[Rfam]
RNA sequence: GUUGCUCGGCUUUCACGGUUGGCUUUUAUGUUUUAUUAUAUUCAUAAGGCACGCGGUGAAUGCCAAGUAAU
Numbered sequence: 001g002u003u004g005c006u007c008g009g010c011u012u013u014c015a016c017g018g019u020u021g022g023c024u025u026u027u028a029u030g031u032u033u034u035a036u037u038a039u040a041u042u043c044a045u046a047a048g049g050c051a052c053g054c055g056g057u058g059a060a061u062g063c064c065a066a067g068u069a070a071u
Stems, first nucleotide, its partner, number of pairs: 003069004009063002012060005018054002023049003027046004